[Rfam]
RNA sequence: UGAUGUCCGAACAGGGACCUGGGAAACUAGGACUCCGUUGAGGAAGAGGACGCAAAGCGUCGGCCGCUAACGAAGACAAAAGGAGUCAAACUCUUCCGAUCACCGCGGAACCUGCUGCGUCAGAAUCGAAGGUAAGUGACGUUUUCCAAAAUGGGACAAGAAUAAGCCAACAUAAAUAUAUGUUAGGACAAUUAAAAGAGGCCUUUAAAGAUACGGAGAGUAAAGGUAAAGGUAAUGAUUUGUUUAAAUUUUUUGAUUUUGUAAAAGACACUUGCCCUU
Numbered sequence: 001u002g003a004u005g006u007c008c009g010a011a012c013a014g015g016g017a018c019c020u021g022g023g024a025a026a027c028u029a030g031g032a033c034u035c036c037g038u039u040g041a042g043g044a045a046g047a048g049g050a051c052g053c054a055a056a057g058c059g060u061c062g063g064c065c066g067c068u069a070a071c072g073a074a075g076a077c078a079a080a081a082g083g084a085g086u087c088a089a090a091c092u093c094u095u096c097c098g099a100u101c102a103c104c105g106c107g108g109a110a111c112c113u114g115c116u117g118c119g120u121c122a123g124a125a126u127c128g129a130a131g132g133u134a135a136g137u138g139a140c141g142u143u144u145u146c147c148a149a150a151a152u153g154g155g156a157c158a159a160g161a162a163u164a165a166g167c168c169a170a171c172a173u174a175a176a177u178a179u180a181u182g183u184u185a186g187g188a189c190a191a192u193u194a195a196a197a198g199a200g201g202c203c204u205u206u207a208a209a210g211a212u213a214c215g216g217a218g219a220g221u222a223a224a225g226g227u228a229a230a231g232g233u234a235a236u237g238a239u240u241u242g243u244u245u246a247a248a249u250u251u252u253u254u255g256a257u258u259u260u261g262u263a264a265a266a267g268a269c270a271c272u273u274g275c276c277c278u279u
Stems, first nucleotide, its partner, number of pairs: 006032003038048002090133003094129002100125001101123001104119005141157002144155003163207003166202003214255008224241004229236001264279002267276001269274001
Annotation:
Rfam assigns this 279-nucleotide RNA sequence from Macaca nemestrina to the family "Mason-Pfizer monkey virus packaging signal". The source organism's lineage runs through Eukaryota, Theria, Haplorrhini, Cercopithecinae and Macaca. It is annotated as a cis-regulatory element. Gene Ontology term of the family: viral genome packaging. The family has 9 seed sequences and 2,921 matches in Rfam 15.1. On this family, see Mustafa et al., Virus Res 2004: "Mutational analysis of the predicted secondary RNA structure of the Mason-Pfizer monkey virus packaging signal".